[Rfam]
RNA sequence: UCGGCCCCGGUUCACGGUUGGACAACCCGUCUUCCGACCCGGCGCC
Numbered sequence: 001u002c003g004g005c006c007c008c009g010g011u012u013c014a015c016g017g018u019u020g021g022a023c024a025a026c027c028c029g030u031c032u033u034c035c036g037a038c039c040c041g042g043c044g045c046c
Base pairs, nucleotide, nucleotide: 003046004045005044007042008041009040010039015036016035017034020032021031022030023029
L31-Actinobacteria ribosomal protein leader: a 46-nucleotide RNA from Streptomyces albus.
Clan: Ribosomal Protein L31 Leader clan.
Pairs were carried over by alignment from the consensus structure, which is taken from published work.